[Rfam]
RNA: ALIL pseudoknot
RNA sequence: UGCGUUUUCGCGCAGGCGGAGCUCGACCGCCUCAAGAAGAAGUGAGGUCGUUUAUCGACCAGCACCGUGAGCGUUUCGGGUCGAGCCGAUCUGCACGUUGCGGGUCGCCCUG
Numbered sequence: 001u002g003c004g005u006u007u008u009c010g011c012g013c014a015g016g017c018g019g020a021g022c023u024c025g026a027c028c029g030c031c032u033c034a035a036g037a038a039g040a041a042g043u044g045a046g047g048u049c050g051u052u053u054a055u056c057g058a059c060c061a062g063c064a065c066c067g068u069g070a071g072c073g074u075u076u077c078g079g080g081u082c083g084a085g086c087c088g089a090u091c092u093g094c095a096c097g098u099u100g101c102g103g104g105u106c107g108c109c110c111u112g
Stems, first nucleotide, its partner, number of pairs: 015031005077112001078110003087107002090104006